The family of this 121-nucleotide RNA from Rhizobium sp. CIAT894 is "Rhizobiales sRNA Atu_C8". It is annotated as a small RNA.
[Rfam]
RNA sequence: GAAAAUCGCAAUGGUUCUGGCAGUGGUGAUAGGGCGCAUGGGCAGGGUGGUGUAACCAUCCGGCGAAGGCACCCAUGCGCGGUAAGCAGGCUCCCGACGGGGCCUUUUUUUAUGCCCUGCA
Numbered sequence: 001g002a003a004a005a006u007c008g009c010a011a012u013g014g015u016u017c018u019g020g021c022a023g024u025g026g027u028g029a030u031a032g033g034g035c036g037c038a039u040g041g042g043c044a045g046g047g048u049g050g051u052g053u054a055a056c057c058a059u060c061c062g063g064c065g066a067a068g069g070c071a072c073c074c075a076u077g078c079g080c081g082g083u084a085a086g087c088a089g090g091c092u093c094c095c096g097a098c099g100g101g102g103c104c105u106u107u108u109u110u111u112a113u114g115c116c117c118u119g120c121a
Stems, first nucleotide, its partner, number of pairs: 007028001009026001034080009045061006063070002086106001088105007
Rfam's curators put it in the seed alignment. Pairs were carried over by alignment from the consensus structure, which was predicted with CMfinder.